Record summary:
This 505-nucleotide part of an RNA from an uncultured archaeon belongs to the Rfam family "Archaeal small subunit ribosomal RNA". The sequence is in the family's curated seed alignment. The literature on the family includes a 2002 paper in BMC Bioinformatics by Cannone et al., "The comparative RNA web (CRW) site: an online database of comparative sequence and structure information for ribosomal, intron, and other RNAs". Clan: SSU clan. Rfam 15.1 lists 709 matches to the family in 491 species.

[Rfam]
RNA sequence: UUCUGGUUGAUCCUGCCAGAGGUUACUGCUAUCGGAGUUCGAUUAAGCCAUGCGAGUCUAAAGGUUUCUUCGGAAACCUUGGCGGACUGCUCAGUAACACGUGGAUAACCUACCCUUGGGACUGGAAUAACCCCGGGAAACUGGGGAUAAUACCGGAUAGAUCAGGGAUGCUGGAAUGCACCUUGAUCCAAAGCUCCGGCGCCCAAGGAUGGGUCUGCGGCCUAUCAGGUAGUAGUGGGUGUAACGUACCUACUAGCCAACGACGGGUACGGGUUGUGAGAGCAAGAGCCCGGAGAUGGAUUCUGAGACACGAAUCCAGGCCCUACGGGGUGCAGCAGGCGCGAAACCUUUACAAUGUGCGAAAGCAUGAUAAGGGAACUCCGAGUGCCAGUAUCUAAUACUGGCUGUCCUUGUGCCUAAAACGCACAAGAUAGCAAGGGCCGGGUAAGACCGGUGCCAGCCGCCGCGGUAACACCGGCGGCCCGAGUGGUAGCCGCUAUUAUUG
Numbered sequence: 001u002u003c004u005g006g007u008u009g010a011u012c013c014u015g016c017c018a019g020a021g022g023u024u025a026c027u028g029c030u031a032u033c034g035g036a037g038u039u040c041g042a043u044u045a046a047g048c049c050a051u052g053c054g055a056g057u058c059u060a061a062a063g064g065u066u067u068c069u070u071c072g073g074a075a076a077c078c079u080u081g082g083c084g085g086a087c088u089g090c091u092c093a094g095u096a097a098c099a100c101g102u103g104g105a106u107a108a109c110c111u112a113c114c115c116u117u118g119g120g121a122c123u124g125g126a127a128u129a130a131c132c133c134c135g136g137g138a139a140a141c142u143g144g145g146g147a148u149a150a151u152a153c154c155g156g157a158u159a160g161a162u163c164a165g166g167g168a169u170g171c172u173g174g175a176a177u178g179c180a181c182c183u184u185g186a187u188c189c190a191a192a193g194c195u196c197c198g199g200c201g202c203c204c205a206a207g208g209a210u211g212g213g214u215c216u217g218c219g220g221c222c223u224a225u226c227a228g229g230u231a232g233u234a235g236u237g238g239g240u241g242u243a244a245c246g247u248a249c250c251u252a253c254u255a256g257c258c259a260a261c262g263a264c265g266g267g268u269a270c271g272g273g274u275u276g277u278g279a280g281a282g283c284a285a286g287a288g289c290c291c292g293g294a295g296a297u298g299g300a301u302u303c304u305g306a307g308a309c310a311c312g313a314a315u316c317c318a319g320g321c322c323c324u325a326c327g328g329g330g331u332g333c334a335g336c337a338g339g340c341g342c343g344a345a346a347c348c349u350u351u352a353c354a355a356u357g358u359g360c361g362a363a364a365g366c367a368u369g370a371u372a373a374g375g376g377a378a379c380u381c382c383g384a385g386u387g388c389c390a391g392u393a394u395c396u397a398a399u400a401c402u403g404g405c406u407g408u409c410c411u412u413g414u415g416c417c418u419a420a421a422a423c424g425c426a427c428a429a430g431a432u433a434g435c436a437a438g439g440g441c442c443g444g445g446u447a448a449g450a451c452c453g454g455u456g457c458c459a460g461c462c463g464c465c466g467c468g469g470u471a472a473c474a475c476c477g478g479c480g481g482c483c484c485g486a487g488u489g490g491u492a493g494c495c496g497c498u499a500u501u502a503u504u505g
Stems, first nucleotide, its partner, number of pairs: 003019005021495010032384009041342001047340003051337003056083003061080003065076004090295003100219007109212002114208007122156004131146006161187007170179002193200002221267003228258003233255008270292004274285004297318006320331004348374001350373003356369005387405008409434001410430007438484006451478004460467002